[Rfam]
RNA sequence: GGAUUGGGCAAACUAAAUAAUAAUUAGGCCUAGGGAACAAAUCCUCCACAGCGAAGGCCGAAAAGAGGCUAGCCAUGCCCUUAGUAGGACUAGCAUAUUGUGGAGGGUAGCAACAGUGGUGAGUUAGUUGGAUGGCUGAAGCCCUGAGUACAGGGUAGUCGUCAGUGGUUCGACGCCUUGGGAUAUAGGCCUCGAGAUGCCACGUGGACGAGGGCAUGCCCACAGCACAUCUUAGCCUGAGCAGGGGUCGCCCAGGCAAAAGCGGAUAAAAUACCGUUACUAACACAGCCUGAUAGGGUGCUGCAGAGGCCCACUGCACUGCUACUAAAAAUCUCUGCUGUACAUGGCAC
Numbered sequence: 001g002g003a004u005u006g007g008g009c010a011a012a013c014u015a016a017a018u019a020a021u022a023a024u025u026a027g028g029c030c031u032a033g034g035g036a037a038c039a040a041a042u043c044c045u046c047c048a049c050a051g052c053g054a055a056g057g058c059c060g061a062a063a064a065g066a067g068g069c070u071a072g073c074c075a076u077g078c079c080c081u082u083a084g085u086a087g088g089a090c091u092a093g094c095a096u097a098u099u100g101u102g103g104a105g106g107g108u109a110g111c112a113a114c115a116g117u118g119g120u121g122a123g124u125u126a127g128u129u130g131g132a133u134g135g136c137u138g139a140a141g142c143c144c145u146g147a148g149u150a151c152a153g154g155g156u157a158g159u160c161g162u163c164a165g166u167g168g169u170u171c172g173a174c175g176c177c178u179u180g181g182g183a184u185a186u187a188g189g190c191c192u193c194g195a196g197a198u199g200c201c202a203c204g205u206g207g208a209c210g211a212g213g214g215c216a217u218g219c220c221c222a223c224a225g226c227a228c229a230u231c232u233u234a235g236c237c238u239g240a241g242c243a244g245g246g247g248u249c250g251c252c253c254a255g256g257c258a259a260a261a262g263c264g265g266a267u268a269a270a271a272u273a274c275c276g277u278u279a280c281u282a283a284c285a286c287a288g289c290c291u292g293a294u295a296g297g298g299u300g301c302u303g304c305a306g307a308g309g310c311c312c313a314c315u316g317c318a319c320u321g322c323u324a325c326u327a328a329a330a331a332u333c334u335c336u337g338c339u340g341u342a343c344a345u346g347g348c349a350c
Base pairs, nucleotide, nucleotide: 044105045104046103047102048101049100051094052093056091057090058088059087063082064081065080067079068078069077106326107325108324109323110322111321112320114316115315116314117313118312119311120287121286123284124283125282126281127280128279130232131231132230133229134228135226136225137224138223141156142155143154144153145152146151159211160210161209162208163207165203166202167201168200169199170195171194172193173192175190176189177188178187179185212221213220214219235257236256237255238254239253241251242250244248263276264275265274288299289298290297291296301340303338304337305336306335307334308333
A member of the RNA family "Pestivirus internal ribosome entry site (IRES) including 5'UTR SLI" from Orthopestivirus bovis, 350 nucleotides long. Gene Ontology term of the family: ribosome binding. Clan: IRES1 clan. A reference for the family is Gosavi et al. (2022), "Insights into the secondary and tertiary structure of the Bovine Viral Diarrhea Virus Internal Ribosome Entry Site", RNA Biol.